[Rfam]
RNA: skipping-rope RNA
RNA sequence: GAACGCUGAGGGCGGAACAGGCAGCCGCCAUCCAGAGCAAUCCGCAGGAGAUGUGGGAGCGUCACCCCACCUCGUUC
Numbered sequence: 001g002a003a004c005g006c007u008g009a010g011g012g013c014g015g016a017a018c019a020g021g022c023a024g025c026c027g028c029c030a031u032c033c034a035g036a037g038c039a040a041u042c043c044g045c046a047g048g049a050g051a052u053g054u055g056g057g058a059g060c061g062u063c064a065c066c067c068c069a070c071c072u073c074g075u076u077c
Stems, first nucleotide, its partner, number of pairs: 001077005008071001011029005020063003031048001053070005